[Rfam]
RNA: Wolbachia sRNA 46
RNA sequence: GAAAAGGCAGGUUUAAGCGAAAGUGUCAUCCCAGUCUGGGAUCCAGAAAGUUUGAUUACAAAUGAACACACUAGAAAGUUAUAUAAUAAGAACUGGAUUCCAGUGUCAAGCACUGGAAUGACAACACUUAUUGAAUCACGU
Numbered sequence: 001g002a003a004a005a006g007g008c009a010g011g012u013u014u015a016a017g018c019g020a021a022a023g024u025g026u027c028a029u030c031c032c033a034g035u036c037u038g039g040g041a042u043c044c045a046g047a048a049a050g051u052u053u054g055a056u057u058a059c060a061a062a063u064g065a066a067c068a069c070a071c072u073a074g075a076a077a078g079u080u081a082u083a084u085a086a087u088a089a090g091a092a093c094u095g096g097a098u099u100c101c102a103g104u105g106u107c108a109a110g111c112a113c114u115g116g117a118a119u120g121a122c123a124a125c126a127c128u129u130a131u132u133g134a135a136u137c138a139c140g141u
Base pairs, nucleotide, nucleotide: 011136012135013134014133015132024123025122026121027120028119029118031116032115033114034113035112036103037102038101039100040099041098042097043096044095045094046093